RNA sequence: GGUGGUUUUCGGGUGACGCACCCUGGAAUCAGUCUCCCUCCUCUCUGGUUCCAGGUGCAUCACCUGAGAACCACA
Dot-bracket structure: .((.((((((((((((..((((..((((((((............)))))))).))))..)))))))))))).)).
Numbered sequence: 001g002g003u004g005g006u007u008u009u010c011g012g013g014u015g016a017c018g019c020a021c022c023c024u025g026g027a028a029u030c031a032g033u034c035u036c037c038c039u040c041c042u043c044u045c046u047g048g049u050u051c052c053a054g055g056u057g058c059a060u061c062a063c064c065u066g067a068g069a070a071c072c073a074c075a
Stems, first nucleotide, its partner, number of pairs: 002074002005071012019057004025052008
The record is a 75-nucleotide sequence from Myotis brandtii, which matches "mir-9223 microRNA precursor family" in Rfam. Rfam 15.1 lists 14,641 matches to the family in 28 species. NCBI's taxonomy places the organism under Eukaryota, Teleostomi, Yangochiroptera, Vespertilionidae, Myotis.